RNA sequence: AUGGAGACAUGGCCUAAAGCCAGAGAGAGUGAGACCAUGAACACUUGAGACUGUCACUUUGAACUUGAUUCACAUCUCAUUUU
Numbered sequence: 001a002u003g004g005a006g007a008c009a010u011g012g013c014c015u016a017a018a019g020c021c022a023g024a025g026a027g028a029g030u031g032a033g034a035c036c037a038u039g040a041a042c043a044c045u046u047g048a049g050a051c052u053g054u055c056a057c058u059u060u061g062a063a064c065u066u067g068a069u070u071c072a073c074a075u076c077u078c079a080u081u082u083u
Base pairs, nucleotide, nucleotide: 004078005077006076007075010022011021012020013019029073030072031071032070
RNA: ctgf/hcs24 CAESAR